[Rfam]
RNA sequence: ACACUGAAGGGAGGUGAUCCUGAGUUGAGUACCGUCAGGAUGCGUGAGGUGGCUGCUCGCUAGAGCCGCCCCUGCCUGCGCAGGGUGAGGCCCCAGGCCUCCGGCAGGCGAAAUCCACAGCAGUCACCCGGCCCGCGGGCUCACCGGUACAUCCCCGGUGCCUCGGCGCCUGGCCAGUGCACGGGCCGGCGUAGAGGAGCAGCCCGCGGGUCGUCUGCG
Numbered sequence: 001a002c003a004c005u006g007a008a009g010g011g012a013g014g015u016g017a018u019c020c021u022g023a024g025u026u027g028a029g030u031a032c033c034g035u036c037a038g039g040a041u042g043c044g045u046g047a048g049g050u051g052g053c054u055g056c057u058c059g060c061u062a063g064a065g066c067c068g069c070c071c072c073u074g075c076c077u078g079c080g081c082a083g084g085g086u087g088a089g090g091c092c093c094c095a096g097g098c099c100u101c102c103g104g105c106a107g108g109c110g111a112a113a114u115c116c117a118c119a120g121c122a123g124u125c126a127c128c129c130g131g132c133c134c135g136c137g138g139g140c141u142c143a144c145c146g147g148u149a150c151a152u153c154c155c156c157g158g159u160g161c162c163u164c165g166g167c168g169c170c171u172g173g174c175c176a177g178u179g180c181a182c183g184g185g186c187c188g189g190c191g192u193a194g195a196g197g198a199g200c201a202g203c204c205c206g207c208g209g210g211u212c213g214u215c216u217g218c219g
Stems, first nucleotide, its partner, number of pairs: 013057004018052001058110004063105001066104003071097003129213013144189005

This 219-nucleotide sequence belongs to the Rfam family "Actinobacteria sRNA Ms_IGR-5". Pairs were carried over by alignment from the consensus structure. The family's RNA type in Rfam is small RNA. On this family, see Li et al., RNA 2013: "Identification of small RNAs in Mycobacterium smegmatis using heterologous Hfq".